A member of the RNA family "mir-1 microRNA precursor family" from Dendroctonus ponderosae, 74 nucleotides long. The base pairs follow the family's consensus structure, which was predicted with RNAalifold. Rfam links the family to the GO terms RISC complex and miRNA-mediated post-transcriptional gene silencing. NCBI's taxonomy places the organism under Eukaryota, Metazoa, Insecta, Dicondylia, Dendroctonus. A reference for the family is Lee and Ambros (2001), "An extensive class of small RNAs in Caenorhabditis elegans", Science.
RNA sequence: GAGCAAGUUCCGUGCUUCUCUACUUCCCAUAGUGGUAUUGGCAUAUGGAAUGUAAAGAAGUAUGGAGCGAGCAA
Numbered sequence: 001g002a003g004c005a006a007g008u009u010c011c012g013u014g015c016u017u018c019u020c021u022a023c024u025u026c027c028c029a030u031a032g033u034g035g036u037a038u039u040g041g042c043a044u045a046u047g048g049a050a051u052g053u054a055a056a057g058a059a060g061u062a063u064g065g066a067g068c069g070a071g072c073a074a
Base pairs, nucleotide, nucleotide: 007068008067009066010065011064012063013062014061015060016059017058018057019056021054022053023052025050027048028047029046030045031044